[Rfam]
RNA: mir-156 microRNA precursor family
Organism: Tetracentron sinense
RNA sequence: CUGACAGAAGAGAGUGAGCACACACAGGUAAUUGCAUACGGAUAUGCUGUUGCUCGGGCGUGCUCACUGCUCUAUCUGUCAG
Numbered sequence: 001c002u003g004a005c006a007g008a009a010g011a012g013a014g015u016g017a018g019c020a021c022a023c024a025c026a027g028g029u030a031a032u033u034g035c036a037u038a039c040g041g042a043u044a045u046g047c048u049g050u051u052g053c054u055c056g057g058g059c060g061u062g063c064u065c066a067c068u069g070c071u072c073u074a075u076c077u078g079u080c081a082g
Stems, first nucleotide, its partner, number of pairs: 001082008010072003013068009023058001025056001
Dot-bracket structure: ((((((((.((((((((((((.(.(..............................).).))))))))).)))..))))))))